[Rfam]
RNA: Eukaryotic large subunit ribosomal RNA, nucleotides 424 to 651
Organism: Coccidioides posadasii
Nucleotides: 228
Stems, first nucleotide, its partner, number of pairs: 001210010012199001017068003024065001072192003076188003214227003
Number, partner (000 for none) and nucleotide at each position: 001210u002209g003208c004207u005206u006205g007204c008203a009202a010201u011000c012199a013000g014000a015000c016000u017068u018067a019066g020000u021000u022000a023000u024065a025000g026000a027000g028000a029000c030000u031000u032000a033000g034000u035000g036000g037000g038000c039000a040000u041000g042000u043000g044000u045000g046000c047000c048000u049000g050000u051000g052000u053000a054000c055000u056000u057000u058000c059000c060000c061000a062000u063000g064000c065024u066019c067018u068017g069000a070000g071000c072192c073191a074190g075000c076188a077187u078186c079000a080000g081000u082000u083000c084000u085000g086000g087000c088000a089000g090000u091000u092000a093000g094000u095000u096000a097000a098000a099000g100000a101000u102000c103000u104000c105000u106000g107000g108000a109000a110000u111000g112000u113000a114000u115000u116000g117000u118000u119000c120000u121000c122000u123000g124000a125000g126000a127000u128000a129000u130000c131000u132000u133000a134000u135000a136000g137000u138000c139000a140000g141000g142000g143000g144000u145000g146000c147000a148000a149000u150000g151000u152000g153000g154000c155000c156000a157000g158000c159000c160000a161000g162000a163000a164000c165000u166000a167000a168000g169000a170000a171000a172000c173000a174000u175000g176000c177000u178000u179000u180000g181000a182000u183000a184000u185000a186078g187077a188076u189000a190074c191073u192072g193000a194000u195000a196000u197000a198000a199012u200000a201010a202009u203008u204007g205006u206005a207004a208003g209002c210001a211000g212000u213000c214227u215226g216225u217000c218000u219000u220000g221000a222000a223000a224000u225216a226215u227214g228000a